[Rfam]
RNA sequence: CUGUAUUUUCAGAUUCCUCCACUUUUGGUCCCUCAUUUUACGUGCAUGCAGAUUCUGCUUACGUGGUGGAAUGAGGGACCAAAAGUGGAAGAAUCUGAAAUUACAU
Numbered sequence: 001c002u003g004u005a006u007u008u009u010c011a012g013a014u015u016c017c018u019c020c021a022c023u024u025u026u027g028g029u030c031c032c033u034c035a036u037u038u039u040a041c042g043u044g045c046a047u048g049c050a051g052a053u054u055c056u057g058c059u060u061a062c063g064u065g066g067u068g069g070a071a072u073g074a075g076g077g078a079c080c081a082a083a084a085g086u087g088g089a090a091g092a093a094u095c096u097g098a099a100a101u102u103a104c105a106u
Stems, first nucleotide, its partner, number of pairs: 004103002007100010018089022044062001048058004